Shown here is a 53-nucleotide RNA from Downingia elegans, a member of the family "Plastid-psbA-3 3UTR RNA". The family's consensus secondary structure was predicted with LocARNA. It is annotated as a cis-regulatory element. About the family: Plastid psbA-3 is a non-coding RNA (ncRNA) present in plastids. It was identified in inverted repeat sequences in the 3 prime untranslate region (3UTR) of photosystem II quinone-binding protein (psbA). Lineage of the source: Eukaryota > Streptophyta > Magnoliopsida > campanulids > Downingia.

[Rfam]
RNA sequence: AGGAACAAUAACGCCCUUUUGUUAGAACAAGGGGGGUUAUUGCUCCGUUUAUU
Numbered sequence: 001a002g003g004a005a006c007a008a009u010a011a012c013g014c015c016c017u018u019u020u021g022u023u024a025g026a027a028c029a030a031g032g033g034g035g036g037u038u039a040u041u042g043c044u045c046c047g048u049u050u051a052u053u
Stems, first nucleotide, its partner, number of pairs: 002046003006042007016033006